[Rfam]
RNA sequence: UCCUAGAAGUUCCGGGUUUCGAGACAUCGUAACCGAUUAUAAACUGGUUCGUUGUCGACGAAACCUGCAAUACAUAGGA
Numbered sequence: 001u002c003c004u005a006g007a008a009g010u011u012c013c014g015g016g017u018u019u020c021g022a023g024a025c026a027u028c029g030u031a032a033c034c035g036a037u038u039a040u041a042a043a044c045u046g047g048u049u050c051g052u053u054g055u056c057g058a059c060g061a062a063a064c065c066u067g068c069a070a071u072a073c074a075u076a077g078g079a
Stems, first nucleotide, its partner, number of pairs: 001079005013067009031049004

The family of this 79-nucleotide sequence from Psylliodes chrysocephalus is "mir-981 microRNA precursor family". The match comes from Rfam's covariance-model search (61 bits). The base pairs follow the family's consensus structure, which was predicted with RNAalifold. The source organism's lineage runs through Eukaryota, Metazoa, Insecta, Chrysomeloidea and Psylliodes.